RNA sequence: UGUGUGUAAUGAUGAGUUGCACUGUCGAUGGGGUUGCAUUCGGCUGCAGUGGCGGCCGCAAGCCCAUCCCGAAUCUCCAUGGUGACACACAAUGUGCACAGGGGCCAUCUGAACACC
Numbered sequence: 001u002g003u004g005u006g007u008a009a010u011g012a013u014g015a016g017u018u019g020c021a022c023u024g025u026c027g028a029u030g031g032g033g034u035u036g037c038a039u040u041c042g043g044c045u046g047c048a049g050u051g052g053c054g055g056c057c058g059c060a061a062g063c064c065c066a067u068c069c070c071g072a073a074u075c076u077c078c079a080u081g082g083u084g085a086c087a088c089a090c091a092a093u094g095u096g097c098a099c100a101g102g103g104g105c106c107a108u109c110u111g112a113a114c115a116c117c
Stems, first nucleotide, its partner, number of pairs: 004116001006114002025072003029066004034061003043056005
Shown here is a 117-nucleotide RNA from Merluccius polli, a member of the family "Small nucleolar RNA SNORD67". Its family is annotated with nucleolus and RNA processing in the Gene Ontology. It scores 60 bits against the family's covariance model. It is annotated as a C/D-box small nucleolar RNA. The literature on the family includes a 2001 paper in EMBO J by Huttenhofer et al., "RNomics: an experimental approach that identifies 201 candidates for novel, small, non-messenger RNAs in mouse". snoRNA HBII-166 belongs to the C/D family of snoRNAs.